[Rfam]
The family of this 274-nucleotide RNA sequence from Saimiri boliviensis is "Mason-Pfizer monkey virus packaging signal". A search with the family's covariance model found it, with a score of 115 bits. The family has 9 seed sequences and 2,921 matches in Rfam 15.1. This family represents a group of sequences that are related to the Mason-Pfizer monkey virus (MPMV) packaging signal.
RNA sequence: UGGCGCCCAACGUGGGGCUCAAAGUAAGAGGGACACCAUGAGGGACAUUGUCAAAGCUGGCCGGAUUGAAGGAAGAAAUCCAGAGAAGGAGUCACCGUGGGAACCUGCUGCGGCCUUGCUCUCUGGUAAGUGAACAACGAUAUUAUGGGUCAGGAAAUUAGUCAGCAUGAGUUGUUUGUAGAAGGACUCAGCAAAGCAUUAAAGGCGCGAGGAGUAAAGGUGAAAGUAAACUGGUUAAUUAAAUAUUUUGAUUAUAUUAAGGACGUUUGCCCCU
Numbered sequence: 001u002g003g004c005g006c007c008c009a010a011c012g013u014g015g016g017g018c019u020c021a022a023a024g025u026a027a028g029a030g031g032g033a034c035a036c037c038a039u040g041a042g043g044g045a046c047a048u049u050g051u052c053a054a055a056g057c058u059g060g061c062c063g064g065a066u067u068g069a070a071g072g073a074a075g076a077a078a079u080c081c082a083g084a085g086a087a088g089g090a091g092u093c094a095c096c097g098u099g100g101g102a103a104c105c106u107g108c109u110g111c112g113g114c115c116u117u118g119c120u121c122u123c124u125g126g127u128a129a130g131u132g133a134a135c136a137a138c139g140a141u142a143u144u145a146u147g148g149g150u151c152a153g154g155a156a157a158u159u160a161g162u163c164a165g166c167a168u169g170a171g172u173u174g175u176u177u178g179u180a181g182a183a184g185g186a187c188u189c190a191g192c193a194a195a196g197c198a199u200u201a202a203a204g205g206c207g208c209g210a211g212g213a214g215u216a217a218a219g220g221u222g223a224a225a226g227u228a229a230a231c232u233g234g235u236u237a238a239u240u241a242a243a244u245a246u247u248u249u250g251a252u253u254a255u256a257u258u259a260a261g262g263a264c265g266u267u268u269g270c271c272c273c274u
Base pairs, nucleotide, nucleotide: 006032007031008030013026014025038048039047084124085123086122087120088119091115096112097111098110099109100108131152132151133150135149158201160199161197162196208250209249210248211247212246214244215243218236219235221233222232259274261272262271264269